[Rfam]
RNA sequence: GUAGACUCCUGGUCGGCUAAAAGCGGUCACGUCCUGUGACCAACGCUCGACACUAGCACGUCCUGUGCG
Number, nucleotide and partner (000 for none) at each position: 001g000002u000003a000004g000005a000006c000007u000008c000009c000010u000011g000012g051013u050014c049015g048016g046017c045018u000019a000020a000021a000022a000023g000024c000025g000026g040027u039028c038029a037030c036031g000032u000033c000034c000035u000036g030037u029038g028039a027040c026041c000042a000043a000044c000045g017046c016047u000048c015049g014050a013051c012052a000053c000054u000055a000056g068057c067058a066059c065060g000061u000062c000063c000064u000065g059066u058067g057068c056069g000
Shown here is a 69-nucleotide RNA from Pseudogracilibacillus auburnensis, a member of the family "Bacillaceae-1 RNA".